The record is a 59-nucleotide sequence from Amycolatopsis xylanica, which matches "Actino-pnp RNA" in Rfam. NCBI's taxonomy places the organism under Bacteria, Actinomycetes, Pseudonocardiales, Pseudonocardiaceae, Amycolatopsis. The family's RNA type in Rfam is cis-regulatory element.
[Rfam]
RNA sequence: GCCGGUCCUCGGUAGUGGUUUCCGGGCACGAGGCCCGGAGGCUUCGAUCGAAGACCGGC
Numbered sequence: 001g002c003c004g005g006u007c008c009u010c011g012g013u014a015g016u017g018g019u020u021u022c023c024g025g026g027c028a029c030g031a032g033g034c035c036c037g038g039a040g041g042c043u044u045c046g047a048u049c050g051a052a053g054a055c056c057g058g059c
Stems, first nucleotide, its partner, number of pairs: 001059007009051005017043011
The match comes from Rfam's covariance-model search (69 bits).